The family of this 81-nucleotide sequence from Xenopus laevis is "mir-130 microRNA precursor family". Rfam 15.1 lists 2,580 matches to the family in 658 species. For this family Rfam cites "Identification of tissue-specific microRNAs from mouse" (Lagos-Quintana et al., Curr Biol, 2002).
[Rfam]
RNA sequence: GGCCGCCUGACACUCUUUCCCUGUUGCACUACUGUGCCAGUGAAUAAAGCAGUGCAAUGAUGAAAGGGCAUCAGUCUGGAG
Numbered sequence: 001g002g003c004c005g006c007c008u009g010a011c012a013c014u015c016u017u018u019c020c021c022u023g024u025u026g027c028a029c030u031a032c033u034g035u036g037c038c039a040g041u042g043a044a045u046a047a048a049g050c051a052g053u054g055c056a057a058u059g060a061u062g063a064a065a066g067g068g069c070a071u072c073a074g075u076c077u078g079g080a081g
Stems, first nucleotide, its partner, number of pairs: 003079001005076001007074004013068007022059009